[Rfam]
RNA sequence: GGUCGAAUAAGGUGUUCACGCCGCAUCUUACAAUAAGUACGGUGCCGUUGCCUGAUGCGACGCUGGCGCGUCUUAUCAGGCC
Dot-bracket structure: .((.(.((..((((....))))..)).).))..................((((((((.(((((....))))).)))))))).
RNA: Nucleoid-associated noncoding RNA 4 (CssrE)
Organism: Escherichia coli